[Rfam]
RNA sequence: CGGACUGGUCGAAUAGAUCUUGGUCCACCCUGCGGCGGGGAUAUUCCCC
Dot-bracket structure: .(((((((((.....))))..))))).......................

Shown here is a 49-nucleotide RNA sequence, a member of the family "DUF3800-XI RNA". It is one of the family's seed sequences.